[Rfam]
RNA sequence: CCACCACUUUAAUGUGGAAGUACUUGUUUUGUUCCUUUAAAAAAGUGCUUUCAUAUUUUAGUGAUGG
Numbered sequence: 001c002c003a004c005c006a007c008u009u010u011a012a013u014g015u016g017g018a019a020g021u022a023c024u025u026g027u028u029u030u031g032u033u034c035c036u037u038u039a040a041a042a043a044a045g046u047g048c049u050u051u052c053a054u055a056u057u058u059u060a061g062u063g064a065u066g067g
Base pairs, nucleotide, nucleotide: 001067002066003065005063006062007061008060011057012056013055014054015053016052017051018050019049020048021047022046023045024044025043027041028040
RNA: mir-302 microRNA precursor family
Organism: Varanus komodoensis